[Rfam]
RNA: TPP riboswitch aptamer (THI element)
Organism: Rhizobium sp. P32RR-XVIII
RNA sequence: AGUGAGAGACAGGGGCGCCCGUUGCAAGACGGGCUGAGAAGCACCCUUCGAACCUGAACCGGAUCAUGCCGGCGGAGGGAGUCGCUCGGAGCCCUCG
Numbered sequence: 001a002g003u004g005a006g007a008g009a010c011a012g013g014g015g016c017g018c019c020c021g022u023u024g025c026a027a028g029a030c031g032g033g034c035u036g037a038g039a040a041g042c043a044c045c046c047u048u049c050g051a052a053c054c055u056g057a058a059c060c061g062g063a064u065c066a067u068g069c070c071g072g073c074g075g076a077g078g079g080a081g082u083c084g085c086u087c088g089g090a091g092c093c094c095u096c097g
Stems, first nucleotide, its partner, number of pairs: 006085001008083003011047004016041001017034005053078003059072004